Shown here is a 57-nucleotide RNA sequence from Gossypium armourianum, a member of the family "Plastid-psbA-2 3UTR RNA".
NCBI's taxonomy places the organism under Eukaryota, Viridiplantae, Magnoliopsida, Pentapetalae, Gossypium.
From the family's description: Plastid psbA-2 is a non-coding RNA (ncRNA) present in plastids.
By type it is a cis-regulatory element.
Pairs were carried over by alignment from the consensus structure, which was predicted with LocARNA.
[Rfam]
RNA sequence: GGAGCAAUAACCACUUUCUUGUUCUAGCAAGAGUGUUGGUAUUGCUCCUUUAUUUCG
Numbered sequence: 001g002g003a004g005c006a007a008u009a010a011c012c013a014c015u016u017u018c019u020u021g022u023u024c025u026a027g028c029a030a031g032a033g034u035g036u037u038g039g040u041a042u043u044g045c046u047c048c049u050u051u052a053u054u055u056c057g
Stems, first nucleotide, its partner, number of pairs: 001048009011038001012035003017032005